[Rfam]
RNA sequence: GGUCAACACAAGGAGGCAGACAUGGGACUGACCAAUUCUCUCAAUGUCCUGAUCGUCGGUGCGGCGUUUGUGUUCAUCGCGACAAUGCUGUUCAUCUAGCCGGAGGUGAUGGACGGAUCGGAUGGAAAGCCAUCCGGAGGCUCGGCAAAAUGAGCCCUUAGCAAUCAGUAGAAAGGCGCAUGCGACAGGGCAUGCGCCUU
Numbered sequence: 001g002g003u004c005a006a007c008a009c010a011a012g013g014a015g016g017c018a019g020a021c022a023u024g025g026g027a028c029u030g031a032c033c034a035a036u037u038c039u040c041u042c043a044a045u046g047u048c049c050u051g052a053u054c055g056u057c058g059g060u061g062c063g064g065c066g067u068u069u070g071u072g073u074u075c076a077u078c079g080c081g082a083c084a085a086u087g088c089u090g091u092u093c094a095u096c097u098a099g100c101c102g103g104a105g106g107u108g109a110u111g112g113a114c115g116g117a118u119c120g121g122a123u124g125g126a127a128a129g130c131c132a133u134c135c136g137g138a139g140g141c142u143c144g145g146c147a148a149a150a151u152g153a154g155c156c157c158u159u160a161g162c163a164a165u166c167a168g169u170a171g172a173a174a175g176g177c178g179c180a181u182g183c184g185a186c187a188g189g190g191c192a193u194g195c196g197c198c199u200u
Stems, first nucleotide, its partner, number of pairs: 015048004024040004173200011
Dot-bracket structure: ..............((((.....((((.........))))....))))............................................................................................................................(((((((((((......)))))))))))
Rhizobiales sRNA Atu_C9: a 200-nucleotide RNA from Ciceribacter sp. L1K22. Rfam classes the family as a small RNA. A search with the family's covariance model found it, with a score of 106 bits.